[Rfam]
RNA sequence: CCGAUGGCCUUAUGCCAGUAAUUGCUUUGAAAUAUGUGAAAUCUGCUUUUAACCUUCUAAAUGAAAAGGUAGAUAGAAUGGGUCUUAUUUGCAAAAUAAAUUCAAGAUCUACUUAUCUACCAACAGCA
Numbered sequence: 001c002c003g004a005u006g007g008c009c010u011u012a013u014g015c016c017a018g019u020a021a022u023u024g025c026u027u028u029g030a031a032a033u034a035u036g037u038g039a040a041a042u043c044u045g046c047u048u049u050u051a052a053c054c055u056u057c058u059a060a061a062u063g064a065a066a067a068g069g070u071a072g073a074u075a076g077a078a079u080g081g082g083u084c085u086u087a088u089u090u091g092c093a094a095a096a097u098a099a100a101u102u103c104a105a106g107a108u109c110u111a112c113u114u115a116u117c118u119a120c121c122a123a124c125a126g127c128a
Stems, first nucleotide, its partner, number of pairs: 003057002006054002011051002019045002023041001026036001028034002068121008080110007
Record summary
Small Cajal body specific RNA 15: a 128-nucleotide RNA from Phyllostomus discolor. About the family: scaRNAs are a specific class of small nuclear RNAs which localise to the Cajal bodies and guide the modification of RNA polymerase II transcribed spliceosomal RNAs U1, U2, U4, U5 and U12. ACA45 belongs to the H/ACA box class of guide RNAs as it has the predicted hairpin-hinge-hairpin-tail structure, the conserved H/ACA-box motifs and is found associated with GAR1. ACA45 is predicted to guide the pseudouridylation of residue U37 of the U2 spliceosomal snRNA. By type it is a small Cajal body RNA. It scores 82 bits against the family's covariance model. The organism belongs to Phyllostomus, within Eukaryota.